[Rfam]
RNA sequence: UGAUGGCUGUUCCUCUUACUGCUUGGAGCCUUACAUAGUGGGAUUUUAGUCCAUCAUAUAUCAAAGCUGACUUGUCUUCACUCAGGGCACCAUGGGGGAUGGGUUGGCCAUCCGUGUGUCUUCUGAUAUUUGCAGAGUCAAACAAUU
Numbered sequence: 001u002g003a004u005g006g007c008u009g010u011u012c013c014u015c016u017u018a019c020u021g022c023u024u025g026g027a028g029c030c031u032u033a034c035a036u037a038g039u040g041g042g043a044u045u046u047u048a049g050u051c052c053a054u055c056a057u058a059u060a061u062c063a064a065a066g067c068u069g070a071c072u073u074g075u076c077u078u079c080a081c082u083c084a085g086g087g088c089a090c091c092a093u094g095g096g097g098g099a100u101g102g103g104u105u106g107g108c109c110a111u112c113c114g115u116g117u118g119u120c121u122u123c124u125g126a127u128a129u130u131u132g133c134a135g136a137g138u139c140a141a142a143c144a145a146u147u
Stems, first nucleotide, its partner, number of pairs: 001056006008049001014043005020037002069139005082126006089119002097113005